[Rfam]
The record is an 85-nucleotide RNA from Erpetoichthys calabaricus, which matches "Small nucleolar RNA SNORD35" in Rfam. The family's consensus secondary structure was predicted with PFOLD. On this family, see Nicoloso et al., J Mol Biol 1996: "Intron-encoded, antisense small nucleolar RNAs: the characterization of nine novel species points to their direct role as guides for the 2'-O-ribose methylation of rRNAs".
RNA sequence: UGCAAAUGAUGGUCUCACGAUGGUCUUCCAAGCCGUGGAAGCGGUAUUGACGACAAGUCCUUCAUGGAAAUACUGAUGCAGCUGU
Numbered sequence: 001u002g003c004a005a006a007u008g009a010u011g012g013u014c015u016c017a018c019g020a021u022g023g024u025c026u027u028c029c030a031a032g033c034c035g036u037g038g039a040a041g042c043g044g045u046a047u048u049g050a051c052g053a054c055a056a057g058u059c060c061u062u063c064a065u066g067g068a069a070a071u072a073c074u075g076a077u078g079c080a081g082c083u084g085u
Base pairs, nucleotide, nucleotide: 001080002079003078004077
Notes:
Its family is annotated with RNA processing and nucleolus in the Gene Ontology. Rfam 15.1 lists 1,842 matches to the family in 634 species. A search with the family's covariance model found it, with a score of 42 bits.